RNA sequence: UUGCUACGCUAAUUCGGCAGGGUUCGAACCGUAAAAGGUUCGAGUCGAGCGAAGGCGAGACAACGUUGCCAGCGGCAACGGCCCGCAGGGCGAGGCCAAAGGCCGAGUCAUCCUGCACGACCCACCA
Numbered sequence: 001u002u003g004c005u006a007c008g009c010u011a012a013u014u015c016g017g018c019a020g021g022g023u024u025c026g027a028a029c030c031g032u033a034a035a036a037g038g039u040u041c042g043a044g045u046c047g048a049g050c051g052a053a054g055g056c057g058a059g060a061c062a063a064c065g066u067u068g069c070c071a072g073c074g075g076c077a078a079c080g081g082c083c084c085g086c087a088g089g090g091c092g093a094g095g096c097c098a099a100a101g102g103c104c105g106a107g108u109c110a111u112c113c114u115g116c117a118c119g120a121c122c123c124a125c126c127a
Stems, first nucleotide, its partner, number of pairs: 017116005023110001030092002039087001041085002046057002064080006
Dot-bracket structure: ................(((((.(......((.......(.((...((........))......((((((.....))))))...)).)...)).................).)))))...........
The family of this 127-nucleotide sequence from Paramixta manurensis is "RtT RNA". The base pairs follow the family's consensus structure, which is taken from published work. It is annotated as a cis-regulatory element. About the family: This family represents a bacterial cis-regulatory element known as RtT RNA. The exact function of RtT is unknown although it is thought that it may be involved in changing the cellular response in relation to amino acid starvation. Taxonomically the source falls in Paramixta (Bacteria, Gammaproteobacteria, Enterobacterales, Erwiniaceae).